[Rfam]
A member of the RNA family "Clostridiales-3 RNA", 236 nucleotides long.
RNA sequence: AGGAGAGUUGAUGGACCGAGAGGUGAAGAUGGAGCAGGUACAGAUUGGAUUGAUUACGGCGGAAGGAUAAUAACUCACGAAGGGAGCUUGAAGUGGUUUCCUGGCCCUCGAAAUAAGCAGCAGAGGGGACGAGCGGUAUAGAAUACCGGUCUUGUGAACAUCAGAGGAUGUCAUGCGGCAGGGUUGCCAGUAACUCCCACGUACACGGGGCGAAGAGGAACAAGCGUGUACUUACA
Numbered sequence: 001a002g003g004a005g006a007g008u009u010g011a012u013g014g015a016c017c018g019a020g021a022g023g024u025g026a027a028g029a030u031g032g033a034g035c036a037g038g039u040a041c042a043g044a045u046u047g048g049a050u051u052g053a054u055u056a057c058g059g060c061g062g063a064a065g066g067a068u069a070a071u072a073a074c075u076c077a078c079g080a081a082g083g084g085a086g087c088u089u090g091a092a093g094u095g096g097u098u099u100c101c102u103g104g105c106c107c108u109c110g111a112a113a114u115a116a117g118c119a120g121c122a123g124a125g126g127g128g129a130c131g132a133g134c135g136g137u138a139u140a141g142a143a144u145a146c147c148g149g150u151c152u153u154g155u156g157a158a159c160a161u162c163a164g165a166g167g168a169u170g171u172c173a174u175g176c177g178g179c180a181g182g183g184u185u186g187c188c189a190g191u192a193a194c195u196c197c198c199a200c201g202u203a204c205a206c207g208g209g210g211c212g213a214a215g216a217g218g219a220a221c222a223a224g225c226g227u228g229u230a231c232u233u234a235c236a
Base pairs, nucleotide, nucleotide: 007030008029009028015024016023017022076156077155078154081102082101083100084099085098086097087096105127106126107125108124109123128153129152131151132150134148135147136146137145138144159170160169161168201231202230203229204228205227206226207225

The sequence is in the family's curated seed alignment.